[Rfam]
RNA sequence: GGCGUAAAGGGCGCGUAGGCGGCACACAUAGUCAGGCGUGAAAUUCCUGGGCUUAACCUGGGGGCUGCGUUUGAUACAUGUGAGCUAGAGGAUGGAAGAGGCUCGUGGAAUUCCCAGUGUAGAGGUGAAAUUCGUAGAUAUUGGGAAGAACACCGGUGGCGAAGGCGGCGAGCUGGUCCAUUACUGACGCUGAGGCGCGAAAGCGUGGGGAGCAAACAGGAUUAGAUACCCUGGUAGUCCACGCUGUAAACGAUGUGCGCUGGAUGUUGGGUGACUUAGUCACUCAGUGUCGUAGCUAACGCGAUAAGCGCACCGCCUGGGGAGUACGGCCGCAAGGUUGAAACUCAAAGGAAU
Numbered sequence: 001g002g003c004g005u006a007a008a009g010g011g012c013g014c015g016u017a018g019g020c021g022g023c024a025c026a027c028a029u030a031g032u033c034a035g036g037c038g039u040g041a042a043a044u045u046c047c048u049g050g051g052c053u054u055a056a057c058c059u060g061g062g063g064g065c066u067g068c069g070u071u072u073g074a075u076a077c078a079u080g081u082g083a084g085c086u087a088g089a090g091g092a093u094g095g096a097a098g099a100g101g102c103u104c105g106u107g108g109a110a111u112u113c114c115c116a117g118u119g120u121a122g123a124g125g126u127g128a129a130a131u132u133c134g135u136a137g138a139u140a141u142u143g144g145g146a147a148g149a150a151c152a153c154c155g156g157u158g159g160c161g162a163a164g165g166c167g168g169c170g171a172g173c174u175g176g177u178c179c180a181u182u183a184c185u186g187a188c189g190c191u192g193a194g195g196c197g198c199g200a201a202a203g204c205g206u207g208g209g210g211a212g213c214a215a216a217c218a219g220g221a222u223u224a225g226a227u228a229c230c231c232u233g234g235u236a237g238u239c240c241a242c243g244c245u246g247u248a249a250a251c252g253a254u255g256u257g258c259g260c261u262g263g264a265u266g267u268u269g270g271g272u273g274a275c276u277u278a279g280u281c282a283c284u285c286a287g288u289g290u291c292g293u294a295g296c297u298a299a300c301g302c303g304a305u306a307a308g309c310g311c312a313c314c315g316c317c318u319g320g321g322g323a324g325u326a327c328g329g330c331c332g333c334a335a336g337g338u339u340g341a342a343a344c345u346c347a348a349a350g351g352a353a354u
Stems, first nucleotide, its partner, number of pairs: 001317003009314001011198004016192001018191003022085002025082004031077001032074009045063007089185002092181005100174007107151001111147008122133003159166002203244006212238002217233004255313006263291012295302002319346003328339004
A member of the RNA family "Bacterial small subunit ribosomal RNA" from Roseococcus sp. SYP-B2431, 354 nucleotides of a longer RNA. The organism belongs to Roseococcus, within Bacteria. For this family Rfam cites "Crystal structure of the ribosome at 5.5 A resolution" (Yusupov et al., Science, 2001).